Shown here is a 401-nucleotide part of an RNA from Trichoderma reesei, a member of the family "Ascomycota telomerase RNA". A reference for the family is Qi et al. (2013), "The common ancestral core of vertebrate and fungal telomerase RNAs", Nucleic Acids Res. It scores 360 bits against the family's covariance model. The source organism's lineage runs through Eukaryota, Opisthokonta, Sordariomycetes, Hypocreomycetidae and Trichoderma reesei. Its family is annotated with telomerase catalytic core complex, telomere maintenance via telomerase and telomerase activity in the Gene Ontology.
RNA sequence: AACCAAACAGAAGGGGGCUUCUUGGGCCGCAUCUAGAAGACUUGGGCUGCGAUACGCUGCUCGGACUUUUGGACUCGAUGAUCUUGAAGAAAGCAGCGGGUCUAUUACAGGAUUGGCUUCGGACAUCGGCUCGUUAGGGACAUUGCAGGAACGACUUGAUGUCAAGUUGGCGUGGAACCGGGACCCAUCUCGAGUUGGAGUCAAAGUUCAGUACUUGUCCGGUUCCAUGUCCGGCUUGGUCUAUGAGUCAGAUCCGCGGACUGUCAUCCGUUGGUUCGUGUUUUUUCCCUCGUCGUACUUGAUACGGCUAUUGGACCAUAAGGACAAGCCAUGGAUUUGGAGGGCAGUCCUGGUUGUCCUUCUCCCAGAAAUGGCUGGAGGACAACCCCCCGGCGGCGAGG
Numbered sequence: 001a002a003c004c005a006a007a008c009a010g011a012a013g014g015g016g017g018c019u020u021c022u023u024g025g026g027c028c029g030c031a032u033c034u035a036g037a038a039g040a041c042u043u044g045g046g047c048u049g050c051g052a053u054a055c056g057c058u059g060c061u062c063g064g065a066c067u068u069u070u071g072g073a074c075u076c077g078a079u080g081a082u083c084u085u086g087a088a089g090a091a092a093g094c095a096g097c098g099g100g101u102c103u104a105u106u107a108c109a110g111g112a113u114u115g116g117c118u119u120c121g122g123a124c125a126u127c128g129g130c131u132c133g134u135u136a137g138g139g140a141c142a143u144u145g146c147a148g149g150a151a152c153g154a155c156u157u158g159a160u161g162u163c164a165a166g167u168u169g170g171c172g173u174g175g176a177a178c179c180g181g182g183a184c185c186c187a188u189c190u191c192g193a194g195u196u197g198g199a200g201u202c203a204a205a206g207u208u209c210a211g212u213a214c215u216u217g218u219c220c221g222g223u224u225c226c227a228u229g230u231c232c233g234g235c236u237u238g239g240u241c242u243a244u245g246a247g248u249c250a251g252a253u254c255c256g257c258g259g260a261c262u263g264u265c266a267u268c269c270g271u272u273g274g275u276u277c278g279u280g281u282u283u284u285u286u287c288c289c290u291c292g293u294c295g296u297a298c299u300u301g302a303u304a305c306g307g308c309u310a311u312u313g314g315a316c317c318a319u320a321a322g323g324a325c326a327a328g329c330c331a332u333g334g335a336u337u338u339g340g341a342g343g344g345c346a347g348u349c350c351u352g353g354u355u356g357u358c359c360u361u362c363u364c365c366c367a368g369a370a371a372u373g374g375c376u377g378g379a380g381g382a383c384a385a386c387c388c389c390c391c392g393g394c395g396g397c398g399a400g401g
Stems, first nucleotide, its partner, number of pairs: 182202003185198003204216004